This 63-nucleotide RNA sequence from Bacillus cereus belongs to the Rfam family "RAGATH-18 RNA". Rfam classes the family as a small RNA. It is one of the family's seed sequences. From the family's description: Actinobacteria, Firmicutes, Fusobacteria, Thermotogae (1 example).
RNA sequence: UCCUCGGAGUGUUAUAAUCAAACGAAAGUAGCUUCGGUAAAAUCGAACACGUAGAACAGGGAA
Numbered sequence: 001u002c003c004u005c006g007g008a009g010u011g012u013u014a015u016a017a018u019c020a021a022a023c024g025a026a027a028g029u030a031g032c033u034u035c036g037g038u039a040a041a042a043u044c045g046a047a048c049a050c051g052u053a054g055a056a057c058a059g060g061g062a063a
Stems, first nucleotide, its partner, number of pairs: 001061004009050005023045003031038002

The base pairs follow the family's consensus structure, which is taken from published work.